[Rfam]
RNA sequence: AUCUUUUUAUUUACUUUGCUGCCAGAUAUGGCGUUGCUUUUAUAGCUUCGUCCAUCGACAUCUCCGUUCAUCUCCCAUUGACCUAGAUGUUUUCGCACUGGCAUAGAACAAUUACUCGUUGCUGGGCACCCGGCUUGGAGAUGUCGUUUUGUACAUCAACGACAAGCCGGGAAUCAGCUGUAGAAACAUGU
Numbered sequence: 001a002u003c004u005u006u007u008u009a010u011u012u013a014c015u016u017u018g019c020u021g022c023c024a025g026a027u028a029u030g031g032c033g034u035u036g037c038u039u040u041u042a043u044a045g046c047u048u049c050g051u052c053c054a055u056c057g058a059c060a061u062c063u064c065c066g067u068u069c070a071u072c073u074c075c076c077a078u079u080g081a082c083c084u085a086g087a088u089g090u091u092u093u094c095g096c097a098c099u100g101g102c103a104u105a106g107a108a109c110a111a112u113u114a115c116u117c118g119u120u121g122c123u124g125g126g127c128a129c130c131c132g133g134c135u136u137g138g139a140g141a142u143g144u145c146g147u148u149u150u151g152u153a154c155a156u157c158a159a160c161g162a163c164a165a166g167c168c169g170g171g172a173a174u175c176a177g178c179u180g181u182a183g184a185a186a187c188a189u190g191u
Base pairs, nucleotide, nucleotide: 017103018102019101021096022095024093030052031051032050033049036046037045038044053089054088055087115183117180118179129171130170133167134166135165136164137163140157141156142155143154144153
The record is a 191-nucleotide RNA from Trichoderma gamsii, which matches "Small nucleolar RNA snR32" in Rfam. By type it is an H/ACA-box small nucleolar RNA. The literature on the family includes a 1993 paper in Nucleic Acids Res by Balakin et al., "SnR31, snR32, and snR33: three novel, non-essential snRNAs from Saccharomyces cerevisiae". Pairs were carried over by alignment from the consensus structure, which was predicted with WAR. Gene Ontology terms of the family: RNA processing and nucleolus. A search with the family's covariance model found it, with a score of 49 bits.